This 80-nucleotide RNA sequence from Adhaeretor mobilis belongs to the Rfam family "c-di-GMP-I riboswitch aptamer".
RNA sequence: UUUCGCUCAGGGCAAGCCGGCCGCGAGGCCGAGCACGCAAAGCCAUGGGUCCCGCACUGCGGGAUCGCCAGGCCGCCGAG
Number, nucleotide and partner (000 for none) at each position: 001u000002u000003u000004c000005g000006c000007u000008c000009a000010g000011g000012g038013c037014a000015a000016g000017c033018c031019g030020g029021c028022c027023g000024c000025g000026a000027g022028g021029c020030c019031g018032a000033g017034c000035a000036c000037g013038c012039a000040a000041a000042g073043c072044c071045a000046u070047g069048g068049g065050u064051c063052c062053c061054g060055c059056a000057c000058u000059g055060c054061g053062g052063g051064a050065u049066c000067g000068c048069c047070a046071g044072g043073c042074c000075g000076c000077c000078g000079a000080g000
The source organism's lineage runs through Bacteria, Pseudomonadati, Pirellulales, Lacipirellulaceae and Adhaeretor.